Rfam assigns this 59-nucleotide sequence from Dulcicalothrix desertica to the family "Nitrogen stress-induced RNA 1". It scores 53 bits against the family's covariance model. The pairing is the family consensus, mapped onto this sequence. Lineage of the source: Bacteria > Bacillati > Cyanophyceae > Nostocales > Dulcicalothrix desertica.
RNA sequence: UGGUAGAUGCACCCUGAUUCAAUUUGACCUCAAUCGUUUUAACGGUUGGGGUUUUUUUG
Numbered sequence: 001u002g003g004u005a006g007a008u009g010c011a012c013c014c015u016g017a018u019u020c021a022a023u024u025u026g027a028c029c030u031c032a033a034u035c036g037u038u039u040u041a042a043c044g045g046u047u048g049g050g051g052u053u054u055u056u057u058u059g
Stems, first nucleotide, its partner, number of pairs: 002013003028051010
Dot-bracket structure: .(((......)))..............((((((((((....))))))))))........

Record summary
By type it is a small RNA.